This 129-nucleotide RNA from Streptomyces cyaneogriseus belongs to the Rfam family "ALIL pseudoknot". The organism belongs to Streptomyces cyaneogriseus, within Bacteria. The match comes from Rfam's covariance-model search (50 bits). By type it is a cis-regulatory element.

RNA sequence: GGCCUUCUUCGCCGCGGAGCUGGACCGUCCACUGCGAUGAAGGUCGCCUACAUCGACCAGUACAAGGAGACGUUCGGCGUCCAGCCGAUCUGCGACAUCCUCGCCGAGACGGACGCGCCGAUCGCGCCG
Numbered sequence: 001g002g003c004c005u006u007c008u009u010c011g012c013c014g015c016g017g018a019g020c021u022g023g024a025c026c027g028u029c030c031a032c033u034g035c036g037a038u039g040a041a042g043g044u045c046g047c048c049u050a051c052a053u054c055g056a057c058c059a060g061u062a063c064a065a066g067g068a069g070a071c072g073u074u075c076g077g078c079g080u081c082c083a084g085c086c087g088a089u090c091u092g093c094g095a096c097a098u099c100c101u102c103g104c105c106g107a108g109a110c111g112g113a114c115g116c117g118c119c120g121a122u123c124g125c126g127c128c129g
Stems, first nucleotide, its partner, number of pairs: 014028004075129005086124002089121002092118003